[Rfam]
Shown here is a 61-nucleotide RNA from Azoarcus indigens, a member of the family "nhaA-I RNA". Taxonomically the source falls in Azoarcus (Bacteria, Pseudomonadati, Betaproteobacteria, Zoogloeaceae). Rfam's curators write: Acidobacteria, Alphaproteobacteria, Betaproteobacteria and Gammaproteobacteria, Verrucomicrobia, cand. division NC10. The match comes from Rfam's covariance-model search (38 bits). It is annotated as a riboswitch.
RNA sequence: GGGUGUCAGCCGCAUGUCGCGGUGGGACAGGUUAAAGAUGAUGCGCGGUCGGGCCGCCGCG
Numbered sequence: 001g002g003g004u005g006u007c008a009g010c011c012g013c014a015u016g017u018c019g020c021g022g023u024g025g026g027a028c029a030g031g032u033u034a035a036a037g038a039u040g041a042u043g044c045g046c047g048g049u050c051g052g053g054c055c056g057c058c059g060c061g
Base pairs, nucleotide, nucleotide: 005028006027007026009023010022011021044061045060046059047058048057049056